[Rfam]
RNA sequence: UGUCAGCUAGCUUAUCAGACUGGUGUUGGUUGGUAAAUAUGUGCAGCAACAGCGGUCUGUAAGCUGACUGAAG
Numbered sequence: 001u002g003u004c005a006g007c008u009a010g011c012u013u014a015u016c017a018g019a020c021u022g023g024u025g026u027u028g029g030u031u032g033g034u035a036a037a038u039a040u041g042u043g044c045a046g047c048a049a050c051a052g053c054g055g056u057c058u059g060u061a062a063g064c065u066g067a068c069u070g071a072a073g
Stems, first nucleotide, its partner, number of pairs: 008066008018057005024051005030045001

Rfam assigns this 73-nucleotide RNA from Gouania willdenowi to the family "mir-21 microRNA precursor family". For this family Rfam cites "Discovery and profiling of bovine microRNAs from immune-related and embryonic tissues" (Coutinho et al., Physiol Genomics, 2007). The family's consensus secondary structure was predicted with RNAalifold. Its family is annotated with miRNA-mediated post-transcriptional gene silencing and RISC complex in the Gene Ontology.